Rfam assigns this 171-nucleotide RNA from Jaculus jaculus to the family "Small nucleolar RNA SNORA23". The source organism's lineage runs through Eukaryota, Craniata, Teleostomi, Dipodidae and Jaculus. The match comes from Rfam's covariance-model search (89 bits). Rfam links the family to the GO terms nucleolus and RNA processing.
RNA sequence: GCUGUGACGUACACUGCUUCCAUCUACGGCUGGUAGCAGUUUCUUUUUGAGUUCAGAUCUAGCAAUCCACACAAACAUCAUGCAGCCAGAGUAACUUAGGGUCAUAGUACUGGUCUAGGGUGUGUCUUUGGUACGUCUCCCACUGACCAGCCUCCAAAUUUCUGCACACAA
Number, nucleotide and partner (000 for none) at each position: 001g000002c000003u000004g000005u000006g000007a000008c000009g000010u000011a000012c082013a081014c000015u000016g000017c000018u000019u000020c000021c000022a000023u000024c000025u000026a000027c000028g072029g000030c000031u069032g068033g067034u065035a000036g063037c062038a000039g060040u000041u000042u057043c056044u055045u000046u000047u000048u000049g000050a000051g000052u000053u000054c000055a044056g043057a042058u000059c000060u039061a000062g037063c036064a000065a034066u000067c033068c032069a031070c000071a000072c028073a000074a000075a000076c000077a000078u000079c000080a000081u013082g012083c000084a000085g000086c000087c000088a000089g000090a000091g000092u000093a000094a000095c000096u000097u164098a163099g162100g161101g160102u000103c000104a000105u000106a000107g000108u000109a000110c150111u149112g148113g147114u146115c145116u000117a144118g143119g000120g141121u135122g134123u133124g132125u131126c130127u000128u000129u000130g126131g125132u124133a123134c122135g121136u000137c000138u000139c000140c000141c120142a000143c118144u117145g115146a114147c113148c112149a111150g110151c000152c000153u000154c000155c000156a000157a000158a000159u000160u101161u100162c099163u098164g097165c000166a000167c000168a000169c000170a000171a000